[Rfam]
Description:
Shown here is a 102-nucleotide RNA sequence from Nomascus leucogenys, a member of the family "Vault RNA". A reference for the family is Stadler et al. (2009), "Evolution of Vault RNAs", Mol Biol Evol. Pairs were carried over by alignment from the consensus structure, which is taken from published work. Rfam classes the family as a non-coding RNA gene. Lineage of the source: Eukaryota > Chordata > Sarcopterygii > Catarrhini > Nomascus. This family of RNAs are found as part of the enigmatic vault ribonucleoprotein complex.

RNA sequence: GGGUCAGCUUUGGCUCAAGUGGUUACUUCCUCAUGCCAGACUUUCCGUCUCUCUAACGCCUGUGCUGGGGUUUGAAUCCUGCAGGUGCUUUCUGAUCUUUUU
Number, nucleotide and partner (000 for none) at each position: 001g000002g097003g096004u095005c094006a093007g092008c000009u000010u000011u000012g000013g086014c085015u084016c000017a000018a000019g082020u081021g080022g079023u000024u000025a000026c000027u076028u075029c074030c000031u000032c000033a000034u000035g000036c000037c000038a000039g000040a000041c000042u000043u000044u000045c000046c000047g000048u000049c000050u000051c000052u000053c000054u000055a000056a000057c000058g000059c000060c000061u000062g000063u000064g000065c000066u000067g000068g000069g000070g000071u000072u000073u000074g029075a028076a027077u000078c000079c022080u021081g020082c019083a000084g015085g014086u013087g000088c000089u000090u000091u000092c007093u006094g005095a004096u003097c002098u000099u000100u000101u000102u000